[Rfam]
This 129-nucleotide sequence from Mastacembelus armatus belongs to the Rfam family "Small nucleolar RNA SNORA77". The family has 19 seed sequences and 843 matches in Rfam 15.1. Rfam links the family to the GO terms RNA processing and nucleolus. The match comes from Rfam's covariance-model search (65 bits). The family's RNA type in Rfam is H/ACA-box small nucleolar RNA. About the family: ACA63 (SNORA77) is a member of the H/ACA class of snoRNAs that guide the sites of modification of uridines to pseudouridines. This snoRNA was identified by computational screening and its expression in mouse experimentally verified by Northern blot and primer extension analysis. ACA63 is proposed to guide the pseudouridylation of 18S rRNA U814. The base pairs follow the family's consensus structure, which was predicted with RNAalifold.
RNA sequence: GCAGACACACUCUGUUCUUUGCUGCUCCCUCCAGCCAGGGACUUUUUCUGUCUGCCACAUGAACAUGCAGAAUGUAACACAUUGCUGGCUCUCUAAAAGGCUGGUGUCACUAUGUUCUGCUACAGUUCA
Numbered sequence: 001g002c003a004g005a006c007a008c009a010c011u012c013u014g015u016u017c018u019u020u021g022c023u024g025c026u027c028c029c030u031c032c033a034g035c036c037a038g039g040g041a042c043u044u045u046u047u048c049u050g051u052c053u054g055c056c057a058c059a060u061g062a063a064c065a066u067g068c069a070g071a072a073u074g075u076a077a078c079a080c081a082u083u084g085c086u087g088g089c090u091c092u093c094u095a096a097a098a099g100g101c102u103g104g105u106g107u108c109a110c111u112a113u114g115u116u117c118u119g120c121u122a123c124a125g126u127u128c129a
Base pairs, nucleotide, nucleotide: 001055002054003053004052005051006050014042015041016040017039018038019037022034023033024032067120068119069118070117071116072113073112074110075109077107078106079105082103084101085100086099